The record is a 44-nucleotide sequence from Frankenia pulverulenta, which matches "Plastid-rpl16 group II-D1 intron" in Rfam. The base pairs follow the family's consensus structure, which was predicted with LocARNA. Lineage of the source: Eukaryota > Streptophyta > Spermatophyta > Frankeniaceae > Frankenia. Plastid-rpl16 is a non-coding RNA (ncRNA) recognised in plastids. It was recognised in and intronic region of a ribosome rpl16 gene. For this family Rfam cites "Retrograde signaling in plants: A critical review focusing on the GUN pathway and beyond" (Richter et al., Plant Commun, 2023).
RNA sequence: AGAGCUUAGAGCCAAUAAAGACUAAGAAGGUUGACUCAAUCAAA
Dot-bracket structure: ......(.(((.((((.............)))).))).).....